[Rfam]
RNA sequence: CCCUGCAUUCGAAAGUGAUCAUGGUCUAACUGUGACCUGGUCAUUGAUAGUGCAGGGAAAGAAACUCCUGAAAGGGUUUUCCCGUGUUUGAAGGGUCAGCAUCCGGCCCUUGCAAACCCUGUACCUUUCACACA
Numbered sequence: 001c002c003c004u005g006c007a008u009u010c011g012a013a014a015g016u017g018a019u020c021a022u023g024g025u026c027u028a029a030c031u032g033u034g035a036c037c038u039g040g041u042c043a044u045u046g047a048u049a050g051u052g053c054a055g056g057g058a059a060a061g062a063a064a065c066u067c068c069u070g071a072a073a074g075g076g077u078u079u080u081c082c083c084g085u086g087u088u089u090g091a092a093g094g095g096u097c098a099g100c101a102u103c104c105g106g107c108c109c110u111u112g113c114a115a116a117c118c119c120u121g122u123a124c125c126u127u128u129c130a131c132a133c134a
Base pairs, nucleotide, nucleotide: 001057002056003055004054005053006052007051008050009049014045015044016043017042018041019040020039021038023037024036025035026034069130070129071128072127073126074125075124086117087116088115089114090113091111092110093109094108095107
The record is a 134-nucleotide RNA sequence from Monodelphis domestica, which matches "Small nucleolar RNA SNORA71" in Rfam. It is annotated as an H/ACA-box small nucleolar RNA. Its family is annotated with RNA processing and nucleolus in the Gene Ontology. On this family, see Ganot et al., Genes Dev 1997: "The family of box ACA small nucleolar RNAs is defined by an evolutionarily conserved secondary structure and ubiquitous sequence elements essential for RNA accumulation". Taxonomically the source falls in Monodelphis (Eukaryota, Opisthokonta, Bilateria, Didelphidae). The members of this family belong to the H/ACA class of snoRNAs which bind a number of proteins (including dyskerin, Gar1p and Nop10p) to form snoRNP complexes. This class of snoRNAs are thought to guide the sites of modification of uridines to pseudouridines by forming direct base pairing interactions with substrate RNAs. This family includes U71 (SNORA71), ACA39 (SNORA39) and ACA60 (SNORA60).